RNA sequence: CUGUGCCCGGCUGCAAGAAUGCUUUUUUUUAAAAAAAAAAAUUCCAUCUGGCAGGACACACAGUAGUCUCUCUCUCAGUUUAGGAGAGUCGUCUUAAGAAUAGGACUCACUCUUGGCCGGGCGCGGUGGCUCAAA
Numbered sequence: 001c002u003g004u005g006c007c008c009g010g011c012u013g014c015a016a017g018a019a020u021g022c023u024u025u026u027u028u029u030u031a032a033a034a035a036a037a038a039a040a041a042u043u044c045c046a047u048c049u050g051g052c053a054g055g056a057c058a059c060a061c062a063g064u065a066g067u068c069u070c071u072c073u074c075u076c077a078g079u080u081u082a083g084g085a086g087a088g089u090c091g092u093c094u095u096a097a098g099a100a101u102a103g104g105a106c107u108c109a110c111u112c113u114u115g116g117c118c119g120g121g122c123g124c125g126g127u128g129g130c131u132c133a134a135a
Stems, first nucleotide, its partner, number of pairs: 001054003006050001019047003025041004072129002075126002078122004084114006091106006
RNA: Small Cajal body specific RNA 11
Organism: Theropithecus gelada